[Rfam]
RNA: mir-135 microRNA precursor family
RNA sequence: GCUCUGCUGUGGCCUAUGGCUUUUCAUUCCUAUGUGAUUGCUGUUUCUAAUUCAUGUAGGGCUAAAAGCCAUGGGCUACAGUGAGGG
Numbered sequence: 001g002c003u004c005u006g007c008u009g010u011g012g013c014c015u016a017u018g019g020c021u022u023u024u025c026a027u028u029c030c031u032a033u034g035u036g037a038u039u040g041c042u043g044u045u046u047c048u049a050a051u052u053c054a055u056g057u058a059g060g061g062c063u064a065a066a067a068g069c070c071a072u073g074g075g076c077u078a079c080a081g082u083g084a085g086g087g
Stems, first nucleotide, its partner, number of pairs: 002086002005083019026063001028061010